[Rfam]
RNA sequence: UGGAGAAGUCAGUGAUGGUUUUAUUCAUGUUGUCUGAACCUGUCUGAAACAUCGGUGAUGCAAUCUCUGGGUGAUUCUGAGACUUCUCUA
Numbered sequence: 001u002g003g004a005g006a007a008g009u010c011a012g013u014g015a016u017g018g019u020u021u022u023a024u025u026c027a028u029g030u031u032g033u034c035u036g037a038a039c040c041u042g043u044c045u046g047a048a049a050c051a052u053c054g055g056u057g058a059u060g061c062a063a064u065c066u067c068u069g070g071g072u073g074a075u076u077c078u079g080a081g082a083c084u085u086c087u088c089u090a
Base pairs, nucleotide, nucleotide: 004087005086006085007084008083009082010081
RNA: Small nucleolar RNA SNORD91 family